A member of the RNA family "DUF3268 RNA", 122 nucleotides long. The family's consensus secondary structure is taken from published work. The family's RNA type in Rfam is small RNA.
RNA sequence: CGGUUCCGCUUGCGAGCAGGCUUUCGGUACGAAUAGGGGCAGGCACCCAUCGUCAACACACCCAGCGAAGGUGUGGAACCGUUACGGAUCUUAGAGAAGAAAGAAUCCAGAUACUGCAAGCG
Numbered sequence: 001c002g003g004u005u006c007c008g009c010u011u012g013c014g015a016g017c018a019g020g021c022u023u024u025c026g027g028u029a030c031g032a033a034u035a036g037g038g039g040c041a042g043g044c045a046c047c048c049a050u051c052g053u054c055a056a057c058a059c060a061c062c063c064a065g066c067g068a069a070g071g072u073g074u075g076g077a078a079c080c081g082u083u084a085c086g087g088a089u090c091u092u093a094g095a096g097a098a099g100a101a102a103g104a105a106u107c108c109a110g111a112u113a114c115u116g117c118a119a120g121c122g
Base pairs, nucleotide, nucleotide: 007122008121009120010119011118012117013116014115025081026080027079028078029053030052031051032050057075058074059073060072061071062070086108087107088106089104090103091102092101